[Rfam]
The record is a 125-nucleotide sequence from Phocoena sinus, which matches "Small nucleolar RNA SNORD97" in Rfam. The literature on the family includes a 2003 paper in Nucleic Acids Res by Vitali et al., "Identification of 13 novel human modification guide RNAs". It scores 79 bits against the family's covariance model. By type it is a C/D-box small nucleolar RNA. The family's consensus secondary structure was predicted with WAR. Gene Ontology terms of the family: nucleolus and RNA processing. Taxonomically the source falls in Phocoena (Eukaryota, Metazoa, Gnathostomata, Mammalia).
RNA sequence: UAGCCCAAUGAUUAUAAAGAGACACGUUAUUAAGAGGACUCAAUGCUGGAAUUCUUUACCUUCUUUCUCUCUUUUCUGUACUUCUAUGUUCGCCUGUCAAAGAAAAAAAAAAAAAAACAGGGAUA
Numbered sequence: 001u002a003g004c005c006c007a008a009u010g011a012u013u014a015u016a017a018a019g020a021g022a023c024a025c026g027u028u029a030u031u032a033a034g035a036g037g038a039c040u041c042a043a044u045g046c047u048g049g050a051a052u053u054c055u056u057u058a059c060c061u062u063c064u065u066u067c068u069c070u071c072u073u074u075u076c077u078g079u080a081c082u083u084c085u086a087u088g089u090u091c092g093c094c095u096g097u098c099a100a101a102g103a104a105a106a107a108a109a110a111a112a113a114a115a116a117a118c119a120g121g122g123a124u125a
Stems, first nucleotide, its partner, number of pairs: 001125002004122003035055004040050002